[Rfam]
RNA sequence: CCAAGUUCAAUUUAAUAAAAAGAGGUGUGACUAUCAUCGAAACUAUCUUGGAAAAGUCUUGGGCGUUAGUUUUACGAAGAAUUUGUUCUACAAGAGCGGUCUCGUCAAUCGGGGUGCGGAGAAACCAGAAACAGCGAUCAUCCUUGCUUUUCUUUAUCGUGGACGCCUUUCCCAUUCUAUCCCAAACAUUUUAUCUUCCUCCGUUUCUUUACCUUAGUCGAUCUUUCGCCUUUCCUAUGUCUCUUUUGUUCCUCUUUUGCGUUUGUUCUCUUCGAUUCUUGACUCGACUCUACAACUUGGCAGAUGUAUCAGAGUGGGGAAGCUCUGGUAGAGGUCGUCCGGUCAUGCCGAUGGAAAUUCCCGCGACUCGUAAUUUCAGUACAAUCUUCAAGCUGUCUCGCCGAGAUGAAAUUCAAUUCAGAUUAUAUAUUCUGAUCUUGG
Numbered sequence: 001c002c003a004a005g006u007u008c009a010a011u012u013u014a015a016u017a018a019a020a021a022g023a024g025g026u027g028u029g030a031c032u033a034u035c036a037u038c039g040a041a042a043c044u045a046u047c048u049u050g051g052a053a054a055a056g057u058c059u060u061g062g063g064c065g066u067u068a069g070u071u072u073u074a075c076g077a078a079g080a081a082u083u084u085g086u087u088c089u090a091c092a093a094g095a096g097c098g099g100u101c102u103c104g105u106c107a108a109u110c111g112g113g114g115u116g117c118g119g120a121g122a123a124a125c126c127a128g129a130a131a132c133a134g135c136g137a138u139c140a141u142c143c144u145u146g147c148u149u150u151u152c153u154u155u156a157u158c159g160u161g162g163a164c165g166c167c168u169u170u171c172c173c174a175u176u177c178u179a180u181c182c183c184a185a186a187c188a189u190u191u192u193a194u195c196u197u198c199c200u201c202c203g204u205u206u207c208u209u210u211a212c213c214u215u216a217g218u219c220g221a222u223c224u225u226u227c228g229c230c231u232u233u234c235c236u237a238u239g240u241c242u243c244u245u246u247u248g249u250u251c252c253u254c255u256u257u258u259g260c261g262u263u264u265g266u267u268c269u270c271u272u273c274g275a276u277u278c279u280u281g282a283c284u285c286g287a288c289u290c291u292a293c294a295a296c297u298u299g300g301c302a303g304a305u306g307u308a309u310c311a312g313a314g315u316g317g318g319g320a321a322g323c324u325c326u327g328g329u330a331g332a333g334g335u336c337g338u339c340c341g342g343u344c345a346u347g348c349c350g351a352u353g354g355a356a357a358u359u360c361c362c363g364c365g366a367c368u369c370g371u372a373a374u375u376u377c378a379g380u381a382c383a384a385u386c387u388u389c390a391a392g393c394u395g396u397c398u399c400g401c402c403g404a405g406a407u408g409a410a411a412u413u414c415a416a417u418u419c420a421g422a423u424u425a426u427a428u429a430u431u432c433u434g435a436u437c438u439u440g441g
Stems, first nucleotide, its partner, number of pairs: 001441004007435003012392002017387001020049003024038004058421002061418002068368004084098005099115006116364004121359002135350002394408006